[Rfam]
RNA sequence: AGGAGGAACAGCAGCAGUGGCUGCCGCAGCUCUGGAGCCCUAGAGUCAGCCCCCGCAGUAGCUCCGGAGCUCUCCGUCUGCAGGGCCUGGAGGCUCCAGGGCGGG
Numbered sequence: 001a002g003g004a005g006g007a008a009c010a011g012c013a014g015c016a017g018u019g020g021c022u023g024c025c026g027c028a029g030c031u032c033u034g035g036a037g038c039c040c041u042a043g044a045g046u047c048a049g050c051c052c053c054c055g056c057a058g059u060a061g062c063u064c065c066g067g068a069g070c071u072c073u074c075c076g077u078c079u080g081c082a083g084g085g086c087c088u089g090g091a092g093g094c095u096c097c098a099g100g101g102c103g104g105g
Base pairs, nucleotide, nucleotide: 002097003096004095005094009089010088011087012085019078020077021076023074028071029070030069031068032067033066034065035064036063040058041057
Annotation
Rfam assigns this 105-nucleotide RNA from Canis lupus to the family "mir-8834 microRNA precursor family". The base pairs follow the family's consensus structure, which was predicted with RNAalifold. The match comes from Rfam's covariance-model search (56 bits). The family has 2 seed sequences and 13,926 matches in Rfam 15.1.